[Rfam]
RNA sequence: CUGUGUCUUGCUUCAACAGUAUUGAGAUGGAACGGACCCAG
Numbered sequence: 001c002u003g004u005g006u007c008u009u010g011c012u013u014c015a016a017c018a019g020u021a022u023u024g025a026g027a028u029g030g031a032a033c034g035g036a037c038c039c040a041g
Stems, first nucleotide, its partner, number of pairs: 001041003005037004010033001012032003016028001017026001
Rfam assigns this 41-nucleotide sequence from Dipodomys ordii to the family "Iron response element I". Pairs were carried over by alignment from the consensus structure, which is taken from published work. The family has 62 seed sequences and 6,829 matches in Rfam 15.1. It scores 34 bits against the family's covariance model. The family's RNA type in Rfam is cis-regulatory element. Gene Ontology term of the family: response to iron ion. The source organism's lineage runs through Eukaryota, Teleostomi, Euteleostomi, Glires and Dipodomys.